Shown here is a 31-nucleotide RNA sequence from Chiloscyllium punctatum, a member of the family "Iron response element II".
The literature on the family includes a 2003 paper in J Hepatol by Lymboussaki et al., "The role of the iron responsive element in the control of ferroportin1/IREG1/MTP1 gene expression".
Rfam's curators write: IRE, TFRC, SLC40A1, SDHB, SLC11A2, CDC42BPA, ACO2, ALAS2_H.SAPIENS, CDC14A, EPAS1, ALAS2, qoxD, Hao1, NDUFS1, transferrin, Aconitate.
It is annotated as a cis-regulatory element.
NCBI's taxonomy places the organism under Eukaryota, Craniata, Vertebrata, Gnathostomata, Chiloscyllium.

RNA sequence: UGUAUAUCGGAAGCAGUGCCUUCCAUAUGUU
Numbered sequence: 001u002g003u004a005u006a007u008c009g010g011a012a013g014c015a016g017u018g019c020c021u022u023c024c025a026u027a028u029g030u031u
Stems, first nucleotide, its partner, number of pairs: 002030006009024005014018001